[Rfam]
RNA: Eukaryotic large subunit ribosomal RNA, nucleotides 428 to 757
RNA sequence: CGUAUAAAAGUAGACCGGCAUUGUGAUGAUCAAUGGGAGCUUCGGUUUUCAUGCACUCAUCACGAUUGCCAGCCAGCAGCAGUUUUUUUCAAAGGAAGAAAACCGGGGGAAUGUAGCCUUGGCCUUCGGGCGGAGGUGUUAUAGCCCUCGGUAAAAAACUUUGGGGGAGACUGAGGCUUGCAGUGGGUUUCUGGGAAAGCUAGUUGCUUGCGAUGUUGUUGUAAAGUUUCUUUCGGGUGCUUUGCAGCAGCGUUGUAACUCUUCUGGUUCUUCACCCUCUCACUUUGGUUGCUGGCGUAAUGCUUUUAUAUGACCCGUCUUGAAACACGG
Number, nucleotide and partner (000 for none) at each position: 001c312002g311003u310004a309005u308006a307007a306008a305009a304010g303011u302012a301013g000014a000015c000016c000017g070018g069019c068020a067021u065022u064023g063024u000025g000026a000027u000028g000029a000030u000031c000032a000033a000034u000035g000036g000037g000038a000039g000040c000041u000042u000043c000044g000045g000046u000047u000048u000049u000050c000051a000052u000053g000054c000055a000056c000057u000058c000059a000060u000061c000062a000063c023064g022065a021066u000067u020068g019069c018070c017071a000072g000073c000074c294075a293076g292077c291078a290079g289080c288081a000082g000083u000084u000085u000086u000087u000088u000089u000090c000091a000092a000093a000094g000095g000096a000097a000098g000099a000100a000101a000102a000103c000104c000105g000106g000107g000108g000109g000110a000111a000112u000113g000114u000115a000116g000117c000118c000119u000120u000121g000122g000123c000124c000125u000126u000127c000128g000129g000130g000131c000132g000133g000134a000135g000136g000137u000138g000139u000140u000141a000142u000143a000144g000145c000146c000147c000148u000149c000150g000151g000152u000153a000154a000155a000156a000157a000158a000159c000160u000161u000162u000163g000164g000165g000166g000167g000168a000169g000170a000171c000172u000173g000174a000175g000176g000177c000178u000179u000180g000181c000182a000183g000184u000185g000186g000187g000188u000189u000190u000191c000192u000193g000194g000195g000196a000197a000198a000199g000200c000201u000202a000203g000204u000205u000206g000207c000208u000209u000210g000211c000212g000213a000214u000215g000216u000217u000218g000219u000220u000221g000222u000223a000224a000225a000226g000227u000228u000229u000230c000231u000232u000233u000234c000235g000236g000237g000238u000239g000240c000241u000242u000243u000244g000245c000246a000247g000248c000249a000250g000251c000252g000253u000254u000255g000256u000257a000258a000259c000260u000261c000262u000263u000264c000265u000266g000267g000268u000269u000270c000271u000272u000273c000274a000275c000276c000277c000278u000279c000280u000281c000282a000283c000284u000285u000286u000287g000288g080289u079290u078291g077292c076293u075294g074295g000296c000297g000298u000299a000300a000301u012302g011303c010304u009305u008306u007307u006308a005309u004310a003311u002312g001313a000314c000315c330316c329317g328318u327319c000320u000321u000322g000323a000324a000325a000326c000327a318328c317329g316330g315